[Rfam]
RNA sequence: CGAGAGAAACCUCUCUAAGGAACUCGGCAAAAUAGCCCCGUAACUUCGGGAGAAGGGGUGACCACUUCGGUGGUUCUCAGUAAAUUGGGUUUAGCGACUGUUUAACAAAAACACAGCACUCUGCCAAGUCGUGAAGACGACGUAUAGGGUGUGACACGUGACCAAUGCGGAAAGAUCAAGGUGACUUGUUAGCUCGCAAGAGCGAAGCUCGGAGCCAAAGUCCCCGUGAAUGUCGGCCGUAACUAUAACGGUCCUAAGGUAGCGAAAUUCCUUGUCGGGUAAGUUCCGACCUGCACGAAUCGUGUAACGACUGAACCGCUGUCUCGGAGAGGAUCUCG
Number, nucleotide and partner (000 for none) at each position: 001c338002g337003a336004g335005a000006g000007a000008a000009a000010c332011c331012u330013c329014u328015c327016u326017a000018a324019g323020g322021a000022a000023c000024u000025c000026g000027g000028c000029a000030a000031a000032a000033u000034a000035g059036c058037c057038c056039c055040g000041u000042a000043a000044c049045u000046u000047c000048g000049g044050g000051a000052g000053a000054a000055g039056g038057g037058g036059u035060g075061a074062c073063c072064a071065c070066u000067u000068c000069g000070g065071u064072g063073g062074u061075u060076c080077u000078c000079a000080g076081u000082a000083a000084a000085u000086u000087g000088g317089g316090u315091u314092u313093a312094g311095c309096g308097a000098c000099u113100g112101u111102u000103u000104a000105a000106c000107a000108a000109a000110a000111a101112c100113a099114c000115a000116g152117c151118a150119c149120u148121c147122u146123g145124c142125c000126a000127a000128g138129u137130c136131g000132u000133g000134a000135a000136g130137a129138c128139g000140a000141c000142g124143u000144a000145u123146a122147g121148g120149g119150u118151g117152u116153g000154a000155c304156a303157c302158g301159u000160g234161a233162c232163c000164a000165a231166u230167g227168c226169g225170g224171a000172a000173a000174g222175a221176u220177c000178a000179a000180g216181g215182u000183g000184a000185c211186u000187u000188g208189u207190u000191a000192g203193c202194u201195c200196g000197c000198a000199a000200g195201a194202g193203c192204g000205a000206a000207g189208c188209u000210c000211g185212g000213a000214g000215c181216c180217a000218a000219a000220g176221u175222c174223c000224c170225c169226g168227u167228g000229a000230a166231u165232g162233u161234c160235g253236g252237c251238c250239g249240u248241a000242a000243c000244u000245a000246u000247a000248a240249c239250g238251g237252u236253c235254c258255u000256a000257a000258g254259g000260u000261a000262g000263c000264g291265a000266a000267a000268u000269u000270c000271c000272u000273u000274g290275u289276c288277g287278g286279g285280u000281a000282a000283g000284u000285u279286c278287c277288g276289a275290c274291c264292u000293g000294c000295a000296c000297g000298a000299a000300u000301c158302g157303u156304g155305u000306a000307a000308c096309g095310a000311c094312u093313g092314a091315a090316c089317c088318g000319c000320u000321g000322u020323c019324u018325c000326g016327g015328a014329g013330a012331g011332g010333a000334u000335c004336u003337c002338g001
Bacterial large subunit ribosomal RNA: a 338-nucleotide part of an RNA from Pedosphaera parvula.